[Rfam]
RNA sequence: UUAUAAGCAAAAUUAACUUUUUAGGUUCAUUCAAUUAAUGAUGUAUGUGGUUCAUAUUAUGGACCACGUACAUCAUUAAUUGAAUGAACCUAAAAAAAUCAAUUUUGCUCAUAA
Number, nucleotide and partner (000 for none) at each position: 001u000002u113003a112004u111005a000006a109007g108008c000009a106010a105011a104012a103013u102014u000015a000016a099017c000018u096019u095020u094021u093022u092023a091024g090025g000026u088027u087028c086029a085030u084031u083032c082033a081034a080035u079036u078037a077038a076039u075040g074041a073042u072043g071044u000045a000046u000047g000048u066049g065050g064051u063052u000053c000054a000055u000056a000057u000058u000059a000060u000061g000062g000063a051064c050065c049066a048067c000068g000069u000070a000071c043072a042073u041074c040075a039076u038077u037078a036079a035080u034081u033082g032083a031084a030085u029086g028087a027088a026089c000090c024091u023092a022093a021094a020095a019096a018097a000098a000099u016100c000101a000102a013103u012104u011105u010106u009107g000108c007109u006110c000111a004112u003113a002114a000
RNA: MIR2593 microRNA precursor family